[Rfam]
RNA sequence: UCAGCUGCUGUAAACAUCCUUGACUGGAAGCUGUGAGACUGAAAGGAGCUUUCAGUCGGAUGUUUACAGCUGUUGG
Numbered sequence: 001u002c003a004g005c006u007g008c009u010g011u012a013a014a015c016a017u018c019c020u021u022g023a024c025u026g027g028a029a030g031c032u033g034u035g036a037g038a039c040u041g042a043a044a045g046g047a048g049c050u051u052u053c054a055g056u057c058g059g060a061u062g063u064u065u066a067c068a069g070c071u072g073u074u075g076g
Stems, first nucleotide, its partner, number of pairs: 002075004008069012023056010
Dot-bracket structure: .((((..((((((((((((...((((((((((..............)))))))))).))))))))))))..)))).
RNA: mir-30 microRNA precursor family